A member of the RNA family "Lysine riboswitch aptamer" from Colwellia sp. MT41, 250 nucleotides long. The literature on the family includes a 2003 paper in Cell by Mandal et al., "Riboswitches Control Fundamental Biochemical Pathways in Bacillus subtilis and Other Bacteria".

[Rfam]
RNA sequence: AGGGCCAGAAGAGGAGCGUUAACCAGGUAAUUACCGUUGUUUUGUUUGUAUGGUUUUUUAAUACAGUCAAAAACAGAGAUCAAACUUUGUAGAGGGUAAUGAGGGGGAUUAACGCCGAGAUAGAUGGCUAUUUGAUUGGCUGUUUAUCGGUUGUUUAUUUUAUACCUUAUAAAGUAGUGGGCUGAAUCCCAACAACUGUCACUUUGAACCAUAACCAUGUUGGUUGUUUAAGUGGGGAGCUUCUGGCCUU
Numbered sequence: 001a002g003g004g005c006c007a008g009a010a011g012a013g014g015a016g017c018g019u020u021a022a023c024c025a026g027g028u029a030a031u032u033a034c035c036g037u038u039g040u041u042u043u044g045u046u047u048g049u050a051u052g053g054u055u056u057u058u059u060a061a062u063a064c065a066g067u068c069a070a071a072a073a074c075a076g077a078g079a080u081c082a083a084a085c086u087u088u089g090u091a092g093a094g095g096g097u098a099a100u101g102a103g104g105g106g107g108a109u110u111a112a113c114g115c116c117g118a119g120a121u122a123g124a125u126g127g128c129u130a131u132u133u134g135a136u137u138g139g140c141u142g143u144u145u146a147u148c149g150g151u152u153g154u155u156u157a158u159u160u161u162a163u164a165c166c167u168u169a170u171a172a173a174g175u176a177g178u179g180g181g182c183u184g185a186a187u188c189c190c191a192a193c194a195a196c197u198g199u200c201a202c203u204u205u206g207a208a209c210c211a212u213a214a215c216c217a218u219g220u221u222g223g224u225u226g227u228u229u230a231a232g233u234g235g236g237g238a239g240c241u242u243c244u245g246g247c248c249u250u
Base pairs, nucleotide, nucleotide: 006245007244008243009242010241011240016115017114018113019112020111021110022109024107030100031099032098033097034096035095037093119148120147121146122145123144124143125142126141127140128139129138130137149197150196151195152194153193154192155191199235200234201233202232203231204230